Rfam assigns this 46-nucleotide RNA from Apostichopus japonicus to the family "Histone 3' UTR stem-loop". The family's consensus secondary structure is taken from published work. Rfam describes the family as follows. The mRNAs of metazoan histone genes lack a poly-A tail. 3' end processing occurs at a site between a highly conserved stem-loop (modelled by this family) and a purine rich region around 20 nts downstream (the histone downstream element, or HDE). Its family is annotated with mRNA 3'-end processing by stem-loop binding and cleavage in the Gene Ontology. It scores 38 bits against the family's covariance model.

RNA sequence: AAAACGGCCCUUUUUAGGGCCACCAAAUUUUCUAGAAAGAACUACU
Number, nucleotide and partner (000 for none) at each position: 001a000002a000003a000004a000005c000006g021007g020008c019009c018010c017011u016012u000013u000014u000015u000016a011017g010018g009019g008020c007021c006022a000023c000024c000025a000026a000027a000028u000029u000030u000031u000032c000033u000034a000035g000036a000037a000038a000039g000040a000041a000042c000043u000044a000045c000046u000
NCBI's taxonomy places the organism under Eukaryota, Opisthokonta, Echinodermata, Aspidochirotida, Apostichopus.